[Rfam]
RNA sequence: UGACGAAUACUUAGUCAAGAUCAUUGCUAUAGUAUUUGUGAUGUUUUAUUGUUAUAAACAAACAGAUUUUCAAAAGUGAUGAUGAACAGACGCUGCUCUAAAUUGAAUUGUUUUCGAAUUUUUCAACUUCUUAGGAAAUUGUAAAACUUCCGAAAAAUUACAUGAUAUUAUUUUGUUGGCAAAUUGAAUUUUUAUUUUUUUUGCCAAUAAUAAAUAAAUGAGCUUGCGUCCGCUGAACUUAC
Numbered sequence: 001u002g003a004c005g006a007a008u009a010c011u012u013a014g015u016c017a018a019g020a021u022c023a024u025u026g027c028u029a030u031a032g033u034a035u036u037u038g039u040g041a042u043g044u045u046u047u048a049u050u051g052u053u054a055u056a057a058a059c060a061a062a063c064a065g066a067u068u069u070u071c072a073a074a075a076g077u078g079a080u081g082a083u084g085a086a087c088a089g090a091c092g093c094u095g096c097u098c099u100a101a102a103u104u105g106a107a108u109u110g111u112u113u114u115c116g117a118a119u120u121u122u123u124c125a126a127c128u129u130c131u132u133a134g135g136a137a138a139u140u141g142u143a144a145a146a147c148u149u150c151c152g153a154a155a156a157a158u159u160a161c162a163u164g165a166u167a168u169u170a171u172u173u174u175g176u177u178g179g180c181a182a183a184u185u186g187a188a189u190u191u192u193u194a195u196u197u198u199u200u201u202u203g204c205c206a207a208u209a210a211u212a213a214a215u216a217a218a219u220g221a222g223c224u225u226g227c228g229u230c231c232g233c234u235g236a237a238c239u240u241a242c
Stems, first nucleotide, its partner, number of pairs: 001041001002039001006036001008034004017028001020025001045066001049065005074240004089230005095223004102169001104167002112156003116150003170215004175211004